This 178-nucleotide RNA sequence from Synechococcus sp. PCC 6312 belongs to the Rfam family "Antisense RNA which regulates isiA expression". Taxonomically the source falls in Synechococcus (Bacteria, Cyanophyceae, Synechococcales, Synechococcaceae). The match comes from Rfam's covariance-model search (106 bits).

[Rfam]
RNA sequence: GAUAACUGUAGAUCACUAGGGGGUCAAGGGUCGGUUGGCUAAUGAUGCGGACGGUUUCCGUGGUGGCAUCGUAGAGUCCGCCCCAAUACAUGGCCUUAGCCACGAGCAAUAAAGCUCCAGCCCCCAAAAAGAGCAGAUGAUGGCCGAGAAUAAUCCCUAACUGCUUGGGAUCAUCCCA
Dot-bracket structure: .......................................................................................................................................((((((..((.((................)).))))))))...